[Rfam]
RNA sequence: UAAUUAAGAUAAAGAAAAGAGACAUGCGUCAACAUGUCCCUAAAAUAGGCCGUUAAAGACGGUGAUUGUCUUAGAUAUUAAGAAUUA
Numbered sequence: 001u002a003a004u005u006a007a008g009a010u011a012a013a014g015a016a017a018a019g020a021g022a023c024a025u026g027c028g029u030c031a032a033c034a035u036g037u038c039c040c041u042a043a044a045a046u047a048g049g050c051c052g053u054u055a056a057a058g059a060c061g062g063u064g065a066u067u068g069u070c071u072u073a074g075a076u077a078u079u080a081a082g083a084a085u086u087a
Stems, first nucleotide, its partner, number of pairs: 023036004049063006
RNA anti-toxin A: an 87-nucleotide sequence from Vagococcus silagei. The base pairs follow the family's consensus structure, which was predicted with RNAalifold. The organism belongs to Vagococcus, within Bacteria. Gene Ontology terms of the family: negative regulation of translation and mRNA binding. For this family Rfam cites "Abundance of type I toxin-antitoxin systems in bacteria: searches for new candidates and discovery of novel families" (Fozo et al., Nucleic Acids Res, 2010).